[Rfam]
RNA sequence: AGCAAAGUAAAUGACACGCGUUAAGUGCAUACAGAUGGGAAGUUGCUGUAUGACGAAGCGAAAGCGCGGUGUGUUAUUGCGUCCGUUGCG
Numbered sequence: 001a002g003c004a005a006a007g008u009a010a011a012u013g014a015c016a017c018g019c020g021u022u023a024a025g026u027g028c029a030u031a032c033a034g035a036u037g038g039g040a041a042g043u044u045g046c047u048g049u050a051u052g053a054c055g056a057a058g059c060g061a062a063a064g065c066g067c068g069g070u071g072u073g074u075u076a077u078u079g080c081g082u083c084c085g086u087u088g089c090g
Stems, first nucleotide, its partner, number of pairs: 002089004010078009019068003025054002028052007038084003042080001058065002
Shown here is a 90-nucleotide RNA sequence from Erysipelothrix rhusiopathiae, a member of the family "THF (Tetrahydrofolate) riboswitch aptamer". The base pairs follow the family's consensus structure, which is taken from published work. NCBI's taxonomy places the organism under Bacteria, Bacillota, Erysipelotrichia, Erysipelotrichaceae, Erysipelothrix rhusiopathiae.